[Rfam]
RNA sequence: GGUGAGCGUAACGUCUCGCUGUCACCUGAGUGGGGGUCGUCCGUUGGUGGCAGGAGAAUCGCGCUUCCCUGCCUGGCACCGGGUACAAGUGACAAUCUGCCCCUUGCAAGGCCGCAGUCUCCGGUGGGAUGGGGACGGAGGUCCCCAUCUCUCGGGUGAUGAUGAGACGCGCAACGCCUCAGGCUGGAAACAGAGCAGGGAAAAGUGUCCGCUGUGGCGCAGAGCAGGGAUCACAGAGUGUCACCCCGGCUGAACAGGGCAGGUGGAGGAGCUCCUCACACCGCGUUU
Numbered sequence: 001g002g003u004g005a006g007c008g009u010a011a012c013g014u015c016u017c018g019c020u021g022u023c024a025c026c027u028g029a030g031u032g033g034g035g036g037u038c039g040u041c042c043g044u045u046g047g048u049g050g051c052a053g054g055a056g057a058a059u060c061g062c063g064c065u066u067c068c069c070u071g072c073c074u075g076g077c078a079c080c081g082g083g084u085a086c087a088a089g090u091g092a093c094a095a096u097c098u099g100c101c102c103c104u105u106g107c108a109a110g111g112c113c114g115c116a117g118u119c120u121c122c123g124g125u126g127g128g129a130u131g132g133g134g135a136c137g138g139a140g141g142u143c144c145c146c147a148u149c150u151c152u153c154g155g156g157u158g159a160u161g162a163u164g165a166g167a168c169g170c171g172c173a174a175c176g177c178c179u180c181a182g183g184c185u186g187g188a189a190a191c192a193g194a195g196c197a198g199g200g201a202a203a204a205g206u207g208u209c210c211g212c213u214g215u216g217g218c219g220c221a222g223a224g225c226a227g228g229g230a231u232c233a234c235a236g237a238g239u240g241u242c243a244c245c246c247c248g249g250c251u252g253a254a255c256a257g258g259g260c261a262g263g264u265g266g267a268g269g270a271g272c273u274c275c276u277c278a279c280a281c282c283g284c285g286u287u288u
Stems, first nucleotide, its partner, number of pairs: 025034003070256002079249004093240002096237004101229002104227004110220001112217007119158001121156002124153001126151011160164001166209005177200003184193003
RNA: Protozoan signal recognition particle RNA